[Rfam]
RNA sequence: GUUUCCGCGAGGGAGGGUCUGGAGGAAGCCAGCGGCAAAGCUGCGAGCCGACGGACAGAAACAUCAUAGAAGGCCGAGAUUCCUGGGGCGAGUCUGCCACACAAGACAAAGCCCUCUGGUUCAGGGAACACGGUAAAUGGCGCGGUUGUGCAGGGACAGUUCACGGU
Numbered sequence: 001g002u003u004u005c006c007g008c009g010a011g012g013g014a015g016g017g018u019c020u021g022g023a024g025g026a027a028g029c030c031a032g033c034g035g036c037a038a039a040g041c042u043g044c045g046a047g048c049c050g051a052c053g054g055a056c057a058g059a060a061a062c063a064u065c066a067u068a069g070a071a072g073g074c075c076g077a078g079a080u081u082c083c084u085g086g087g088g089c090g091a092g093u094c095u096g097c098c099a100c101a102c103a104a105g106a107c108a109a110a111g112c113c114c115u116c117u118g119g120u121u122c123a124g125g126g127a128a129c130a131c132g133g134u135a136a137a138u139g140g141c142g143c144g145g146u147u148g149u150g151c152a153g154g155g156a157c158a159g160u161u162c163a164c165g166g167u
Base pairs, nucleotide, nucleotide: 002015003014004013005012006011028167029166030165035160036159041153042152043151044150045149046147047146048145049144050143062142064140065139066138067137073134074133075132078129080127081126082125083124086114087113088112089111092107093106094105095104

This 167-nucleotide RNA sequence from Halomicronema hongdechloris belongs to the Rfam family "Group II catalytic intron D1-D4-3". About the family: Group II introns are found in rRNA, tRNA and mRNA of organelles in fungi, plants and protists, and also in mRNA in bacteria. Rfam 15.1 lists 4,274 matches to the family in 1,585 species. It scores 123 bits against the family's covariance model. On this family, see Bonen and Vogel, Trends Genet 2001: "The ins and outs of group II introns". Lineage of the source: Bacteria > Cyanophyceae > Nodosilineales > Halomicronema > Halomicronema hongdechloris.